[Rfam]
Overview
Mammalian CPEB3 ribozyme: a 74-nucleotide sequence from Alligator mississippiensis. The base pairs follow the family's consensus structure, which is taken from published work. The match comes from Rfam's covariance-model search (47 bits). The source organism's lineage runs through Eukaryota, Metazoa, Dipnotetrapodomorpha, Tetrapoda and Alligator. Rfam's curators write: The mammalian CPEB3 ribozyme is a self cleaving RNA located in the second intron of the CPEB3 gene which belongs to a family of genes regulating messenger RNA polyadenylation. This ribozyme is highly conserved and found only in mammals.
RNA sequence: UGAGAGUUCAAAGCUACCACAGAAGCACUCACAGUGUAGCCAUGUCAGAUUCCAACGAAUCUGCAAAUUCUGUU
Number, nucleotide and partner (000 for none) at each position: 001u000002g000003a000004g000005a000006g000007u000008u000009c000010a000011a000012a000013g040014c039015u038016a000017c000018c000019a073020c072021a071022g070023a069024a068025g037026c036027a035028c000029u000030c000031a000032c000033a000034g000035u027036g026037u025038a015039g014040c013041c000042a000043u000044g000045u000046c063047a062048g061049a060050u059051u058052c057053c000054a000055a000056c000057g052058a051059a050060u049061c048062u047063g046064c000065a000066a000067a000068u024069u023070c022071u021072g020073u019074u000